This 64-nucleotide RNA sequence from Phyllostomus discolor belongs to the Rfam family "Small nucleolar RNA SNORD42".
Rfam links the family to the GO terms RNA processing and nucleolus.
It scores 70 bits against the family's covariance model.
snoRNA U42 is found in intron 3 of the ribosomal protein L23a (RPL23a) gene in humans and is also present in mice.
The source organism's lineage runs through Eukaryota, Deuterostomia, Boreoeutheria, Chiroptera and Phyllostomus.
By type it is a C/D-box small nucleolar RNA.
RNA sequence: GUGCAUAUGAUGGAAAAUGUUUAACCUGAGACUCGUGAUGUCUUCAAAGGAACCACUGAUGCGC
Numbered sequence: 001g002u003g004c005a006u007a008u009g010a011u012g013g014a015a016a017a018u019g020u021u022u023a024a025c026c027u028g029a030g031a032c033u034c035g036u037g038a039u040g041u042c043u044u045c046a047a048a049g050g051a052a053c054c055a056c057u058g059a060u061g062c063g064c
Stems, first nucleotide, its partner, number of pairs: 001064005